RNA sequence: GCGAGAGUCGGGCGGACGUGGUCGUCGCCAACUUGGUCAGGUCCUGACGGAAGCAGCCACAACGAUUUCCCCACGGGUCGUCCGGCUCUCACCGC
Number, nucleotide and partner (000 for none) at each position: 001g000002c000003g090004a089005g088006a087007g086008u000009c084010g083011g082012g081013c080014g079015g000016a000017c075018g074019u073020g072021g071022u000023c000024g066025u065026c064027g063028c000029c000030a000031a000032c000033u000034u059035g058036g057037u056038c000039a000040g000041g000042u051043c050044c049045u000046g000047a000048c000049g044050g043051a042052a000053g000054c000055a000056g037057c036058c035059a034060c000061a000062a000063c027064g026065a025066u024067u000068u000069c000070c000071c021072c020073a019074c018075g017076g000077g000078u000079c014080g013081u012082c011083c010084g009085g000086c007087u006088c005089u004090c003091a000092c000093c000094g000095c000
Bacterial small signal recognition particle RNA: a 95-nucleotide sequence from Sphingomonas metalli. On this family, see Rosenblad et al., Nucleic Acids Res 2003: "SRPDB: Signal Recognition Particle Database". Rfam classes the family as a non-coding RNA gene. The base pairs follow the family's consensus structure, which is taken from published work. Taxonomically the source falls in Sphingomonas (Bacteria, Alphaproteobacteria, Sphingomonadales, Sphingomonadaceae). Rfam's curators write: The signal recognition particle (SRP) is a universally conserved ribonucleoprotein involved in the co-translational targeting of proteins to membranes.